RNA: Guanidine-II riboswitch aptamer (mini-ykkC)
Organism: Solimonas terrae
RNA sequence: GGAUCGGGACGACCCGAUCGCAGUGGAAACCCCAGGUCGGGACGACCCGA
Numbered sequence: 001g002g003a004u005c006g007g008g009a010c011g012a013c014c015c016g017a018u019c020g021c022a023g024u025g026g027a028a029a030c031c032c033c034a035g036g037u038c039g040g041g042a043c044g045a046c047c048c049g050a
Base pairs, nucleotide, nucleotide: 002019003018004017005016006015007014008013037050038049039048040047041046